[Rfam]
RNA sequence: UUCCUCACAGUUUCCCGGUUCUCAUUUUCCGCAAGGAAUGUUCUACUGCAGUACCCCUCUCCAAGGCUCGUUUCCCACGGCAUACCGCUCCCGAGCCUGAAACAGAAUCUCGUUGUAUGCGGUAAAUGGACCUGCUGUGGUGAUUCGCCGUCGGUAACAAGACGGCACGACCUCGUCGAGGGAAUGAGUUUCGGAGCUUAACCCUACCCUAUCU
Numbered sequence: 001u002u003c004c005u006c007a008c009a010g011u012u013u014c015c016c017g018g019u020u021c022u023c024a025u026u027u028u029c030c031g032c033a034a035g036g037a038a039u040g041u042u043c044u045a046c047u048g049c050a051g052u053a054c055c056c057c058u059c060u061c062c063a064a065g066g067c068u069c070g071u072u073u074c075c076c077a078c079g080g081c082a083u084a085c086c087g088c089u090c091c092c093g094a095g096c097c098u099g100a101a102a103c104a105g106a107a108u109c110u111c112g113u114u115g116u117a118u119g120c121g122g123u124a125a126a127u128g129g130a131c132c133u134g135c136u137g138u139g140g141u142g143a144u145u146c147g148c149c150g151u152c153g154g155u156a157a158c159a160a161g162a163c164g165g166c167a168c169g170a171c172c173u174c175g176u177c178g179a180g181g182g183a184a185u186g187a188g189u190u191u192c193g194g195a196g197c198u199u200a201a202c203c204c205u206a207c208c209c210u211a212u213c214u
Base pairs, nucleotide, nucleotide: 009198010197011196015194016193017192018191